Alphaproteobacterial ar14: a 124-nucleotide RNA sequence from Sinorhizobium terangae. A search with the family's covariance model found it, with a score of 121 bits. Pairs were carried over by alignment from the consensus structure. Rfam classes the family as a small RNA. Rfam's curators write: Smr14C2 was renamed NfeR1 (Nodule Formation Efficiency RNA) highly expressed in salt stress and during the symbiotic interaction on legume roots. For this family Rfam cites "A survey of sRNA families in alpha-proteobacteria" (del Val et al., RNA Biol, 2012).
RNA sequence: CGAAUUCGGAGCAGCGUACUCCUCCUCCCAACGCUUCUCCGAUAAGAUUGGCAACACUCCUCCUCCCGGUUGCCAAUCACUUACAUGACGCCCGCUGGACCUCCUCCCCCAGCGGGCGUUUUGC
Numbered sequence: 001c002g003a004a005u006u007c008g009g010a011g012c013a014g015c016g017u018a019c020u021c022c023u024c025c026u027c028c029c030a031a032c033g034c035u036u037c038u039c040c041g042a043u044a045a046g047a048u049u050g051g052c053a054a055c056a057c058u059c060c061u062c063c064u065c066c067c068g069g070u071u072g073c074c075a076a077u078c079a080c081u082u083a084c085a086u087g088a089c090g091c092c093c094g095c096u097g098g099a100c101c102u103c104c105u106c107c108c109c110c111a112g113c114g115g116g117c118g119u120u121u122u123g124c
Stems, first nucleotide, its partner, number of pairs: 007041003011037001013035005046078010088119011